The record is a 46-nucleotide RNA sequence from Gilliamella sp. Occ3-1, which matches "PreQ1 (pre queuosine) riboswitch aptamer" in Rfam. NCBI's taxonomy places the organism under Bacteria, Pseudomonadati, Orbales, Orbaceae, Gilliamella. The match comes from Rfam's covariance-model search (54 bits). On this family, see Reader et al., J Biol Chem 2004: "Identification of four genes necessary for biosynthesis of the modified nucleoside queuosine". Rfam's curators write: This family is a bacterial riboswitch that binds to the metabolite preQ1, an intermediate in the biosynthesis of the modified nucleoside queuosine from GTP. One example of this riboswitch is located in the leader of the Bacillus subtilis ykvJKLM (queCDEF) operon which encodes four genes necessary for queuosine production. PreQ1 binding to the riboswitch aptamer is thought to induce premature transcription termination within the leader to down-regulate expression of these genes.

[Rfam]
RNA sequence: CUAACCGUGGUUCGUAACCCAUCCCACGAAAAAAAACUAGGAAUAU
Numbered sequence: 001c002u003a004a005c006c007g008u009g010g011u012u013c014g015u016a017a018c019c020c021a022u023c024c025c026a027c028g029a030a031a032a033a034a035a036a037c038u039a040g041g042a043a044u045a046u
Stems, first nucleotide, its partner, number of pairs: 006028005015039002